[Rfam]
RNA sequence: UCUUUGCAAUCUUGUUUAAGUAUCCUGAAACGGGCUUUUCAGGAUCAUAUUUUAUUAAAUUUUUUAGGAGUGAAUAGUGGCCCGUAUAGCAGGCAUUAAUAUUCCUGAU
Number, nucleotide and partner (000 for none) at each position: 001u000002c000003u000004u000005u049006g048007c000008a000009a045010u044011c043012u042013u041014g000015u000016u000017u000018a000019a000020g000021u000022a000023u000024c093025c092026u091027g000028a000029a000030a000031c084032g083033g082034g081035c000036u000037u000038u000039u108040c107041a013042g012043g011044a010045u009046c000047a000048u006049a005050u000051u000052u000053u000054a000055u000056u000057a000058a000059a000060u000061u000062u000063u000064u000065u000066a000067g000068g000069a000070g000071u000072g000073a000074a000075u000076a000077g000078u000079g000080g000081c034082c033083c032084g031085u000086a000087u000088a000089g000090c000091a026092g025093g024094c000095a000096u000097u000098a000099a000100u000101a000102u000103u000104c000105c000106u000107g040108a039109u000
RNA: Alpha operon ribosome binding site
Organism: Sodalis endosymbiont of Henestaris halophilus